[Rfam]
RNA sequence: ACAUCCUGGCAGUCGCUGCAUGUUCAGUGCAGAGGAAAGUCCAUGCUCGCACAGCCUGAGACGGCUGUAGUGUUCGUGCCUGACGAAACCAUAAGUCAGGGCAGUCUGGUAUGUAGAUACUAGAUUGACGGCGGGGAACAGACCUGUGUUGCUUCCAUGCAAUAUGGUCUUAUUACCCUGAAAGUGCCACAGUGACGUAGUUCGUUUGGAAACAAACGAAGUGGAACGCGGUAAACCCCUCGAGCGAGAAACCCAAAUGUUGGUAGGGGCGCCUUUCUGAAGGAACCAAACGGAAGGAAAGGGCAAGAGUACAUUACUCUUGCAGAUAGAUGACUGCCUCCAGCGUGCAAGGCGAACAGCCGCAGCAGCACAAUGGAACAGAACAUGGCUUACUAGA
Numbered sequence: 001a002c003a004u005c006c007u008g009g010c011a012g013u014c015g016c017u018g019c020a021u022g023u024u025c026a027g028u029g030c031a032g033a034g035g036a037a038a039g040u041c042c043a044u045g046c047u048c049g050c051a052c053a054g055c056c057u058g059a060g061a062c063g064g065c066u067g068u069a070g071u072g073u074u075c076g077u078g079c080c081u082g083a084c085g086a087a088a089c090c091a092u093a094a095g096u097c098a099g100g101g102c103a104g105u106c107u108g109g110u111a112u113g114u115a116g117a118u119a120c121u122a123g124a125u126u127g128a129c130g131g132c133g134g135g136g137a138a139c140a141g142a143c144c145u146g147u148g149u150u151g152c153u154u155c156c157a158u159g160c161a162a163u164a165u166g167g168u169c170u171u172a173u174u175a176c177c178c179u180g181a182a183a184g185u186g187c188c189a190c191a192g193u194g195a196c197g198u199a200g201u202u203c204g205u206u207u208g209g210a211a212a213c214a215a216a217c218g219a220a221g222u223g224g225a226a227c228g229c230g231g232u233a234a235a236c237c238c239c240u241c242g243a244g245c246g247a248g249a250a251a252c253c254c255a256a257a258u259g260u261u262g263g264u265a266g267g268g269g270c271g272c273c274u275u276u277c278u279g280a281a282g283g284a285a286c287c288a289a290a291c292g293g294a295a296g297g298a299a300a301g302g303g304c305a306a307g308a309g310u311a312c313a314u315u316a317c318u319c320u321u322g323c324a325g326a327u328a329g330a331u332g333a334c335u336g337c338c339u340c341c342a343g344c345g346u347g348c349a350a351g352g353c354g355a356a357c358a359g360c361c362g363c364a365g366c367a368g369c370a371c372a373a374u375g376g377a378a379c380a381g382a383a384c385a386u387g388g389c390u391u392a393c394u395a396g397a
Stems, first nucleotide, its partner, number of pairs: 004397002008338007016032006037391003041388005046248005051068006074243003078239001079100006101129001102127011130238002133178003141169004148163005184236002186232003201220008252268003272302007303323009340376003345371004
RNA: Bacterial RNase P class B
Organism: Alteribacillus persepolensis